[Rfam]
RNA sequence: AAGUAUUACAGUUAUUUUAGAAUCUGUCUAGCAGAUUUUCCAGUUUUUAUCAGAAAACUCUC
Numbered sequence: 001a002a003g004u005a006u007u008a009c010a011g012u013u014a015u016u017u018u019a020g021a022a023u024c025u026g027u028c029u030a031g032c033a034g035a036u037u038u039u040c041c042a043g044u045u046u047u048u049a050u051c052a053g054a055a056a057a058c059u060c061u062c
Base pairs, nucleotide, nucleotide: 034059036057037056038055039054040053043050044049
The family of this 62-nucleotide RNA from Saimiri boliviensis is "U7 small nuclear RNA". Rfam's curators write: Animal histone pre-mRNAs are spliced by a different mechanism than nuclear pre-mRNAs and self-splicing introns. Pairs were carried over by alignment from the consensus structure, which was predicted with PFOLD. A search with the family's covariance model found it, with a score of 38 bits. A reference for the family is Spycher et al. (1994), "3' end processing of mouse histone pre-mRNA: evidence for additional base-pairing between U7 snRNA and pre-mRNA", Nucleic Acids Res.